[Rfam]
RNA sequence: GUAGGUCAAAGGCAAACCAUGUGAAAGCAUGGGACGCAAAGCUAAAGGGGCUUGGCCAAGUGGCCGUGCCAGCCAGCUGCCCGC
Numbered sequence: 001g002u003a004g005g006u007c008a009a010a011g012g013c014a015a016a017c018c019a020u021g022u023g024a025a026a027g028c029a030u031g032g033g034a035c036g037c038a039a040a041g042c043u044a045a046a047g048g049g050g051c052u053u054g055g056c057c058a059a060g061u062g063g064c065c066g067u068g069c070c071a072g073c074c075a076g077c078u079g080c081c082c083g084c
Stems, first nucleotide, its partner, number of pairs: 012037002017032006040078004047074002049070003054065004

Shown here is an 84-nucleotide RNA from Alicyclobacillus hesperidum, a member of the family "c-di-GMP-I riboswitch aptamer".
The base pairs follow the family's consensus structure, which is taken from published work.